Description:
The record is a 61-nucleotide sequence from Cuscuta europaea, which matches "Plastid-psbA-4 3UTR RNA" in Rfam. Rfam's curators write: Plastid psbA-4 is a non-coding RNA (ncRNA) present in plastids. It was identified in inverted repeat sequences in the 3 prime untranslate region (3UTR) of photosystem II quinone-binding protein (psbA). The match comes from Rfam's covariance-model search (57 bits). Clan: Plastid-psbA 3UTR RNA clan. It is annotated as a cis-regulatory element. A reference for the family is Richter et al. (2023), "Retrograde signaling in plants: A critical review focusing on the GUN pathway and beyond", Plant Commun. NCBI's taxonomy places the organism under Eukaryota, Mesangiospermae, eudicotyledons, Gunneridae, Cuscuta subgen. Cuscuta.
[Rfam]
RNA sequence: UCAAUAAAGGAGCAAUAACCGAUUUCUUGUUCUAGACAAGAAGGCGGAAUUGCUCCUUUAU
Numbered sequence: 001u002c003a004a005u006a007a008a009g010g011a012g013c014a015a016u017a018a019c020c021g022a023u024u025u026c027u028u029g030u031u032c033u034a035g036a037c038a039a040g041a042a043g044g045c046g047g048a049a050u051u052g053c054u055c056c057u058u059u060a061u
Stems, first nucleotide, its partner, number of pairs: 006059011021045001024042006